A member of the RNA family "ROOL RNA", 576 nucleotides long. Firmicutes, Fusobacteria (1 example), Tenericutes (1 example).
RNA sequence: GACAUUUUGUUUAGCAAUUAUGAACCAAGUGAAGAUGUGCUAACCACACAGCUUGGGAUACUUGAAUAACAGCCAUACACUACGGCCCGGGAUACUAGGCAAGUGCGGCCGCGAAACUAGUAAUAGUUAGCGAUAGCGGAGAAACUCCAAAUGUUAAGAGUAUGCGCUAAGUAAUUCGGUUGAAAAUGUACGAUUCCUUACGGCGACGCAAUAGGAAGCCAGGUUAAGAGCCAGGCCAAAUCCAAGAAAGUGUAUUGGGGUGGUAGCCAAUAAAUACCUUGGAAAAACCACAAGUCGCUAUGUCGAUGAAAGCCAGAAAUGGCAUAUAAGUAAGGUUUGCGGUUGGAGUAGCCCAAGACAAGAAAUUGGAUUAAAUAGAAAUAUUGAAAUUUGAUUUCUGCUGAAUGGUUUGGGUGAAACUUAGAGGUAAGCAUUCCUCUCUAUUCUCGGUGCUUGGCACGGGAAUCGGAUGGUAUAAGGUCGCUACUUAUGCCACAGCCCGAUUUUCAAUAGUAACAUAAUAUUCAACAAGAAUUAUGAGGUACGGCGAAGGUCGCAGUAAUUGUUAAACAAAGU
Dot-bracket structure: ......((..((.(..(.(.....(((((......((((.......)))).))))).((((((........(((.((.......(((.((....)).)))...)).)))(((..(((((....))))).))).....((((...)))).........))))))..........(.(....(..(......((...((((((((((((..............((((...))))........((((((......((((((..[[[[..)))))).....))))))...]]]]...)))))).[[[[.......((((....))))......))))))....))...(.....((((((]]]].......................................[[[[......))))))....)...(.((.........)).).(((..................(((...(...(((((((.......)))))).).]]]].)...)))..)))............)..).....).)........((((....)))).....).)..).))..))..

The family's RNA type in Rfam is small RNA. Pairs were carried over by alignment from the consensus structure, which is taken from published work.